Rfam assigns this 86-nucleotide sequence from Sorghum bicolor to the family "Small nucleolar RNA snoR109". Rfam links the family to the GO terms nucleolus and RNA processing. On this family, see Marker et al., Curr Biol 2002: "Experimental RNomics: identification of 140 candidates for small non-messenger RNAs in the plant Arabidopsis thaliana". The family has 6 seed sequences and 680 matches in Rfam 15.1.

[Rfam]
RNA sequence: CGGCUGUAGCCAAAUUAACGAGGAAGAAAAACUGGUCGGCUUGCCCUUAUUCAGUGGGUUAUCCGCUUACCGAUCUUCCCAUAUGC
Numbered sequence: 001c002g003g004c005u006g007u008a009g010c011c012a013a014a015u016u017a018a019c020g021a022g023g024a025a026g027a028a029a030a031a032c033u034g035g036u037c038g039g040c041u042u043g044c045c046c047u048u049a050u051u052c053a054g055u056g057g058g059u060u061a062u063c064c065g066c067u068u069a070c071c072g073a074u075c076u077u078c079c080c081a082u083a084u085g086c
Stems, first nucleotide, its partner, number of pairs: 022079006034067003038063002043059004